[Rfam]
RNA sequence: UUGAAGUUCCAUCUCUUAAUGGAUAGGAUUUUCUCCUAACAUAUAGGAAAGGAAUUUUAAAAAGAAGGAAACCCAGAAAUGCCCAAUUUCUUAGAAAUUGGGUAUUUCUG
Numbered sequence: 001u002u003g004a005a006g007u008u009c010c011a012u013c014u015c016u017u018a019a020u021g022g023a024u025a026g027g028a029u030u031u032u033c034u035c036c037u038a039a040c041a042u043a044u045a046g047g048a049a050a051g052g053a054a055u056u057u058u059a060a061a062a063a064g065a066a067g068g069a070a071a072c073c074c075a076g077a078a079a080u081g082c083c084c085a086a087u088u089u090c091u092u093a094g095a096a097a098u099u100g101g102g103u104a105u106u107u108c109u110g
Stems, first nucleotide, its partner, number of pairs: 008023005074110009084100003088096003

The family of this 110-nucleotide RNA from Eriachne triodioides is "Plastid-psbA-1 3UTR RNA". Rfam's curators write: Plastid psbA-1 is a non-coding RNA (ncRNA) present in plastids. Rfam classes the family as a cis-regulatory element.